[Rfam]
RNA sequence: UAAAAGGGUCGGUUGGCUAAAUAUGCCACGCUUACCCGUAGAUCGGUAAGUGCUGUAUGGCCUAUCAAGACAUAUGGCCAACAUAAUUUGUGGAAAUCCAUUAUAGGGUUUGGCUCCUUUCUGGCCGACCCUCC
Dot-bracket structure: .......((.((.((((.......))))((((((((.(....).))))))))(((((((...........))))))))).))......................(((((..(.(........).)..)))))..
U11 spliceosomal RNA: a 134-nucleotide RNA from Papaver nudicaule. Rfam classes the family as a spliceosomal small nuclear RNA. Rfam links the family to the GO terms mRNA 5'-splice site recognition, U11 snRNP and pre-mRNA 5'-splice site binding. The match comes from Rfam's covariance-model search (62 bits). The base pairs follow the family's consensus structure, which is taken from published work. Its Rfam clan is "U1 clan".